[Rfam]
RNA sequence: GGUUUAGGCUGCUACAAUAGCCGCCUUUUUAGCAACCUAACUUAAUCUGGAGCUUUGGACGAUGUCUCUGAAUGCAGAACAAAAAGCGGCAAUCGUAGCUGAUUAUCGCCAGUCAGAU
Numbered sequence: 001g002g003u004u005u006a007g008g009c010u011g012c013u014a015c016a017a018u019a020g021c022c023g024c025c026u027u028u029u030u031a032g033c034a035a036c037c038u039a040a041c042u043u044a045a046u047c048u049g050g051a052g053c054u055u056u057g058g059a060c061g062a063u064g065u066c067u068c069u070g071a072a073u074g075c076a077g078a079a080c081a082a083a084a085a086g087c088g089g090c091a092a093u094c095g096u097a098g099c100u101g102a103u104u105a106u107c108g109c110c111a112g113u114c115a116g117a118u
Stems, first nucleotide, its partner, number of pairs: 007025003011021002046072001048070005
RNA: Ribosomal S15 leader